[Rfam]
RNA sequence: AGGAUUCCUACAGGAGCGACCUGAAAUCACAUGUGGGCUGCACCCUCCUGGGUUAUCUUGAGCAACAUGUGUUCUCAGGUCGCCCCUGCCGGGCUUUC
Dot-bracket structure: ......((..((((.((((...((.(.(((((..................................))))).).))...)))).))))..))......

Annotation
A member of the RNA family "MIR398 microRNA precursor family" from Populus trichocarpa, 98 nucleotides long. Taxonomically the source falls in Populus (Eukaryota, Viridiplantae, Embryophyta, Saliceae). Rfam links the family to the GO terms miRNA-mediated post-transcriptional gene silencing and RISC complex. For this family Rfam cites "Computational identification of plant microRNAs and their targets, including a stress-induced miRNA" (Jones-Rhoades and Bartel, Mol Cell, 2004). It is one of the family's seed sequences.